[Rfam]
The family of this 102-nucleotide RNA sequence from Pseudonocardia sulfidoxydans is "Guanidine-I riboswitch aptamer". NCBI's taxonomy places the organism under Bacteria, Pseudonocardiales, Pseudonocardiaceae, Pseudonocardia, Pseudonocardia sulfidoxydans. A search with the family's covariance model found it, with a score of 77 bits. The pairing is the family consensus, mapped onto this sequence. This family represents a conserved RNA structure found upstream of the ykkC and yxkD genes in Bacillus subtilis and related genes in other bacteria.
RNA sequence: GUGAGGCGCGUCUAGGGUUCCGUCCCGCUGCGGCGGGGGUCUGGUCCGAGAGAUGCAGGCGGCCGCGAGGCCGUCCCACGGCGGGGGAAAAGCCCGGGAGAC
Numbered sequence: 001g002u003g004a005g006g007c008g009c010g011u012c013u014a015g016g017g018u019u020c021c022g023u024c025c026c027g028c029u030g031c032g033g034c035g036g037g038g039g040u041c042u043g044g045u046c047c048g049a050g051a052g053a054u055g056c057a058g059g060c061g062g063c064c065g066c067g068a069g070g071c072c073g074u075c076c077c078a079c080g081g082c083g084g085g086g087g088a089a090a091a092g093c094c095c096g097g098g099a100g101a102c
Stems, first nucleotide, its partner, number of pairs: 008056005015047002020044002022041001023038006058075007077097001079100001083095003